[Rfam]
RNA sequence: CUACCAAAAGUUAACUUUUUGUGGGUAAGGUUUAUUAAGUAACCUUUACCAGCUUGGGCUAUUUGGAAAAAUAAAAUAAAGACCACGCUCCACAGUGGACUAUACCACUUAUAGUUUGCUACUAUUUUGUGGCCUACAUU
Numbered sequence: 001c002u003a004c005c006a007a008a009a010g011u012u013a014a015c016u017u018u019u020u021g022u023g024g025g026u027a028a029g030g031u032u033u034a035u036u037a038a039g040u041a042a043c044c045u046u047u048a049c050c051a052g053c054u055u056g057g058g059c060u061a062u063u064u065g066g067a068a069a070a071a072u073a074a075a076a077u078a079a080a081g082a083c084c085a086c087g088c089u090c091c092a093c094a095g096u097g098g099a100c101u102a103u104a105c106c107a108c109u110u111a112u113a114g115u116u117u118g119c120u121a122c123u124a125u126u127u128u129g130u131g132g133c134c135u136a137c138a139u140u
Stems, first nucleotide, its partner, number of pairs: 004066005012061002015058003021054001025050001028047001029044004080135002083132005094120011
Dot-bracket structure: ...(((((...((.(((...(...(..(((((........))))..)..)...).))).))))))).............((.(((((......(((((((((((.....))))))))))).......))))).)).....
About this RNA
The family of this 140-nucleotide sequence from Saimiri boliviensis is "Small nucleolar RNA SNORA4". The family's consensus secondary structure was predicted with PFOLD. From the family's description: ACA4 is a member of the H/ACA class of snoRNA that guide the sites of modification of uridines to pseudouridines. Rfam links the family to the GO terms RNA processing and nucleolus. Lineage of the source: Eukaryota > Chordata > Teleostomi > Dipnotetrapodomorpha > Saimiri boliviensis.